[Rfam]
RNA: Manganese Mn2+ riboswitch aptamer (yybP-ykoY)
Organism: Aliivibrio fischeri
RNA sequence: ACCUUACUCUUUGGGGAGUAGCCUGCUUUCUCGUUUUCAUAAAAAUACAUAAAACAGAAAGCUCAUAUAUCAACAUAAUUGAUGCAAAAUCAUCAUGGUAUAUGAGACAAGCCUGAGCAGCUUGUUU
Numbered sequence: 001a002c003c004u005u006a007c008u009c010u011u012u013g014g015g016g017a018g019u020a021g022c023c024u025g026c027u028u029u030c031u032c033g034u035u036u037u038c039a040u041a042a043a044a045a046u047a048c049a050u051a052a053a054a055c056a057g058a059a060a061g062c063u064c065a066u067a068u069a070u071c072a073a074c075a076u077a078a079u080u081g082a083u084g085c086a087a088a089a090u091c092a093u094c095a096u097g098g099u100a101u102a103u104g105a106g107a108c109a110a111g112c113c114u115g116a117g118c119a120g121c122u123u124g125u126u127u
Stems, first nucleotide, its partner, number of pairs: 026061006063105010080095005106126007
Dot-bracket structure: .........................((((((........................)))))).((((((((((.......(((((......)))))))))))))))(((((((.......))))))).